[Rfam]
The family of this 91-nucleotide RNA from Escherichia coli is "CopA-like RNA". The literature on the family includes a 1983 paper in EMBO J by Light and Molin, "Post-transcriptional control of expression of the repA gene of plasmid R1 mediated by a small RNA molecule". Rfam's curators write: In several groups of bacterial plasmids, antisense RNAs regulate copy number through inhibition of replication initiator protein synthesis. These RNAs are characterised by a long hairpin structure interrupted by several unpaired residues or bulged loops. In plasmid R1, the inhibitory complex between the antisense RNA (CopA) and its target mRNA (CopT) is characterised by a four-way junction structure and a side-by-side helical alignment. It is one of the family's seed sequences.

Nucleotides: 091
Base pairs, nucleotide, nucleotide: 001020002019003018004017005016029091031089032085033084034083035082036081037080038079039078040077041076042075043074044073045072046071047070
Number, partner (000 for none) and nucleotide at each position: 001020a002019u003018a004017g005016c006000u007000g008000a009000a010000u011000u012000g013000u014000u015000g016005g017004c018003u019002a020001u021000a022000c023000g024000g025000u026000u027000u028000u029091a030000u031089g032085g033084g034083g035082c036081c037080c038079c039078g040077g041076u042075a043074a044073u045072c046071u047070u048000c049000u050000c051000u052000u053000a054000g055000u056000c057000g058000c059000c060000a061000a062000a063000c064000u065000u066000c067000u068000c069000g070047a071046a072045g073044a074043u075042u076041a077040u078039c079038g080037g081036g082035g083034u084033u085032u086000u087000u088000g089031c090000u091029u